[Rfam]
RNA sequence: GAAUUUAAUUGAUAGAGACUUUGUAUAACUCCAAUGAUAUGGUUUGGGGGUUUCUACCAGGGACCGAUAAUUCCUGAUUACGAAGAAGAUACUUUUGUGU
Numbered sequence: 001g002a003a004u005u006u007a008a009u010u011g012a013u014a015g016a017g018a019c020u021u022u023g024u025a026u027a028a029c030u031c032c033a034a035u036g037a038u039a040u041g042g043u044u045u046g047g048g049g050g051u052u053u054c055u056a057c058c059a060g061g062g063a064c065c066g067a068u069a070a071u072u073c074c075u076g077a078u079u080a081c082g083a084a085g086a087a088g089a090u091a092c093u094u095u096u097g098u099g100u
Base pairs, nucleotide, nucleotide: 019085020084021083022082023081024080025079029049030048031047032046033045034044058076059075060074061073062072063071
A member of the RNA family "Purine riboswitch aptamer" from Clostridium chauvoei, 100 nucleotides long.
The family's consensus secondary structure is taken from published work.
Rfam's curators write: Riboswitches are metabolite binding domains within certain messenger RNAs that serve as precision sensors for their corresponding targets. Allosteric rearrangement of mRNA structure is mediated by ligand binding, and this results in modulation of gene expression. A class of riboswitches that selectively recognises guanine and becomes saturated at concentrations as low as 5 nM. In Bacillus subtilis, this mRNA motif is located on at least five separate transcriptional units that together encode 17 genes that are mostly involved in purine transport and purine nucleotide biosynthesis. It has also been shown that some members of this family are specific for adenine instead. Hence this family are termed purine riboswitches.
The family is grouped with related families in Rfam's "Purine riboswitches".